glmS glucosamine-6-phosphate activated ribozyme aptamer: a 173-nucleotide sequence from Anaerosolibacter carboniphilus. The family's consensus secondary structure is taken from published work. The organism belongs to Anaerosolibacter, within Bacteria. Rfam describes the family as follows. This entry contains a glucosamine-6-phosphate activated ribozyme that is found in the mRNA for GlmS. GlmS is an enzyme that uses fructose-6-phosphate and glutamine to generate glucosamine-6-phosphate. The ribozyme catalyses self cleavage of the glmS mRNA that is thought to regulate GlmS activity. It is annotated as a riboswitch.
[Rfam]
RNA sequence: AAUAGUACUGAAGCGCCAGAACUUAGAUCCAGACCGGAAGAUAGGAUGUAAGUUGACGAGGACAUGGUUUAGCGAAAAUUCGGCGGAUGCCAUGCGGUGUAUAGCCACCACCGAGAAAGAUCGGACAAAACCCGUGAGUGAUUACGGGCACAAACAACGAUCGGGUGGCGAAA
Numbered sequence: 001a002a003u004a005g006u007a008c009u010g011a012a013g014c015g016c017c018a019g020a021a022c023u024u025a026g027a028u029c030c031a032g033a034c035c036g037g038a039a040g041a042u043a044g045g046a047u048g049u050a051a052g053u054u055g056a057c058g059a060g061g062a063c064a065u066g067g068u069u070u071a072g073c074g075a076a077a078a079u080u081c082g083g084c085g086g087a088u089g090c091c092a093u094g095c096g097g098u099g100u101a102u103a104g105c106c107a108c109c110a111c112c113g114a115g116a117a118a119g120a121u122c123g124g125a126c127a128a129a130a131c132c133c134g135u136g137a138g139u140g141a142u143u144a145c146g147g148g149c150a151c152a153a154a155c156a157a158c159g160a161u162c163g164g165g166u167g168g169c170g171a172a173a
Stems, first nucleotide, its partner, number of pairs: 020054006027047001029045001063094005073082003095113005119162005131148007